[Rfam]
RNA sequence: CACUCUGGAGAGAGGCGCAUUUGCGUCCGCCGAAGGGAUAGCGAUCUCAGGCGAAGGGACAGAGGG
Numbered sequence: 001c002a003c004u005c006u007g008g009a010g011a012g013a014g015g016c017g018c019a020u021u022u023g024c025g026u027c028c029g030c031c032g033a034a035g036g037g038a039u040a041g042c043g044a045u046c047u048c049a050g051g052c053g054a055a056g057g058g059a060c061a062g063a064g065g066g
Stems, first nucleotide, its partner, number of pairs: 001066001003064005014027004029052003032048002036046002
Glycine riboswitch aptamer: a 66-nucleotide RNA from Jannaschia pohangensis. Rfam links the family to the GO term glycine biosynthetic process. Lineage of the source: Bacteria > Pseudomonadati > Alphaproteobacteria > Roseobacteraceae > Jannaschia.